[Rfam]
RNA sequence: UGAAAACGUUUUACAAUUAAUAUGUUCUUAAAUUUCCCUAAACUAAAAAAGAAUGGCCAGAAUAAACUGCUCCCCUUUAAGAACUGGAUUAUAUCCAAGGGAGUUCCUUUAUUUUGGAAGGAGAUUAUUCUUUUUCAUUUUAAGGAAAAAAACUAUUUAAGGAGGAAGAACAAGA
Numbered sequence: 001u002g003a004a005a006a007c008g009u010u011u012u013a014c015a016a017u018u019a020a021u022a023u024g025u026u027c028u029u030a031a032a033u034u035u036c037c038c039u040a041a042a043c044u045a046a047a048a049a050a051g052a053a054u055g056g057c058c059a060g061a062a063u064a065a066a067c068u069g070c071u072c073c074c075c076u077u078u079a080a081g082a083a084c085u086g087g088a089u090u091a092u093a094u095c096c097a098a099g100g101g102a103g104u105u106c107c108u109u110u111a112u113u114u115u116g117g118a119a120g121g122a123g124a125u126u127a128u129u130c131u132u133u134u135u136c137a138u139u140u141u142a143a144g145g146a147a148a149a150a151a152a153c154u155a156u157u158u159a160a161g162g163a164g165g166a167a168g169a170a171c172a173a174g175a
Stems, first nucleotide, its partner, number of pairs: 006025004011020002026169004033148005039142001041140002044137001046135009057117010